[Rfam]
RNA sequence: UGGCCCUCACUUGGGUAUAGUGGCAUCUGACUGGUGGUGCCCAUCUCAUAUCAGCCAGAGACAAAGCAACCCCUUGUUCACCCCAGCUUGGCUUUUGAUCUGUGUCCAUGCCUAAUUCAUGCCUUGGACACAUAG
Numbered sequence: 001u002g003g004c005c006c007u008c009a010c011u012u013g014g015g016u017a018u019a020g021u022g023g024c025a026u027c028u029g030a031c032u033g034g035u036g037g038u039g040c041c042c043a044u045c046u047c048a049u050a051u052c053a054g055c056c057a058g059a060g061a062c063a064a065a066g067c068a069a070c071c072c073c074u075u076g077u078u079c080a081c082c083c084c085a086g087c088u089u090g091g092c093u094u095u096u097g098a099u100c101u102g103u104g105u106c107c108a109u110g111c112c113u114a115a116u117u118c119a120u121g122c123c124u125u126g127g128a129c130a131c132a133u134a135g
Stems, first nucleotide, its partner, number of pairs: 001063002004060001006058002011054004019046002022041006075130006090123003096119003101114002104111002
Background:
The record is a 135-nucleotide sequence from Saimiri boliviensis, which matches "Small nucleolar RNA SNORA48" in Rfam. For this family Rfam cites "Mapping to nucleotide resolution of pseudouridine residues in large subunit ribosomal RNAs from representative eukaryotes, prokaryotes, archaebacteria, mitochondria and chloroplasts" (Ofengand and Bakin, J Mol Biol, 1997). The snoRNA ACA 48 has been identified to guide pseudouridylation of the residue U3797 in the 28S rRNA subunit. Rfam links the family to the GO terms nucleolus and RNA processing. Clan: SNORA48 clan.